[Rfam]
RNA sequence: UCCCCAAACUCUGGAGAGCGAUAGCGGCGGACAGUUGCCGAACUAUCCACCGAAGGUGCGCACGGAGGGUGUUCUACUCCGUAAUCUCUCAGGUAUCAGGACAGGGUGGGCUGC
Numbered sequence: 001u002c003c004c005c006a007a008a009c010u011c012u013g014g015a016g017a018g019c020g021a022u023a024g025c026g027g028c029g030g031a032c033a034g035u036u037g038c039c040g041a042a043c044u045a046u047c048c049a050c051c052g053a054a055g056g057u058g059c060g061c062a063c064g065g066a067g068g069g070u071g072u073u074c075u076a077c078u079c080c081g082u083a084a085u086c087u088c089u090c091a092g093g094u095a096u097c098a099g100g101a102c103a104g105g106g107u108g109g110g111c112u113g114c
Stems, first nucleotide, its partner, number of pairs: 008107006020047004049094003052090002056088001058086001062082006
The family of this 114-nucleotide RNA sequence from Janthinobacterium sp. 17J80-10 is "Glycine riboswitch aptamer". The match comes from Rfam's covariance-model search (43 bits).